[Rfam]
RNA sequence: GUCGGUCCUCGACAGUGGCCUCCGCAAUACGCAUGUGCGUGGGCCUCGAUCGAAGGCCGCC
Numbered sequence: 001g002u003c004g005g006u007c008c009u010c011g012a013c014a015g016u017g018g019c020c021u022c023c024g025c026a027a028u029a030c031g032c033a034u035g036u037g038c039g040u041g042g043g044c045c046u047c048g049a050u051c052g053a054a055g056g057c058c059g060c061c
Base pairs, nucleotide, nucleotide: 001061003059004058005057006056007055009053010052011051012050017045018044019043020042021041023039024038025037026036027034028033

Actino-pnp RNA: a 61-nucleotide RNA from Brevibacterium jeotgali. The family's RNA type in Rfam is cis-regulatory element. Lineage of the source: Bacteria > Bacillati > Actinomycetota > Brevibacteriaceae > Brevibacterium.